[Rfam]
RNA: Plastid-psbA-1 3UTR RNA
RNA sequence: GUAAAUAUUUUUACUUUUACUAAAUCUAAAUAUAGUAGUAAAAAAAAAGGAGCAAUAGCUAAUCUCUUGUUCUAUCAAGAGAUUAGCUAUUGCUCCUUUUUU
Dot-bracket structure: .............................................(((((((((((((.(((.(((((........))))).))).)))))))))))))...